[Rfam]
RNA sequence: GCGUGGGUCGGCCCGCCGCGUUGAUCAGCGGGUCGGGGGAUGCCGCUGCCUCAAUCCCCGCGGGUGGCGGAACGGUCCGGGGGGUGGAUUCCGCCUCCCGGACCGCG
Number, nucleotide and partner (000 for none) at each position: 001g106002c105003g000004u000005g000006g073007g000008u071009c035010g034011g033012c032013c031014c030015g029016c028017c000018g026019c000020g000021u000022u000023g000024a000025u000026c018027a000028g016029c015030g014031g013032g012033u011034c010035g009036g041037g000038g000039g000040a000041u036042g000043c070044c069045g068046c067047u066048g065049c064050c063051u062052c000053a000054a000055u000056c000057c000058c000059c000060g000061c000062g051063g050064g049065u048066g047067g046068c045069g044070g043071a008072a000073c006074g104075g103076u102077c101078c100079g099080g098081g097082g096083g095084g094085u093086g092087g000088a000089u000090u000091c000092c086093g085094c084095c083096u082097c081098c080099c079100g078101g077102a076103c075104c074105g002106c001107g000
The family of this 107-nucleotide RNA from Streptomyces sp. ISL-86 is "Streptomyces RNA 4115". From the family's description: Identified by deep sequencing of transcriptome at the end of exponential growth phase. Sequencing size consistent with notrthern blot size. The pairing is the family consensus, mapped onto this sequence. For this family Rfam cites "Deep sequencing-based identification of small non-coding RNAs in Streptomyces coelicolor" (Vockenhuber et al., RNA Biol, 2011). Taxonomically the source falls in Streptomyces (Bacteria, Actinomycetota, Actinomycetes, Streptomycetaceae).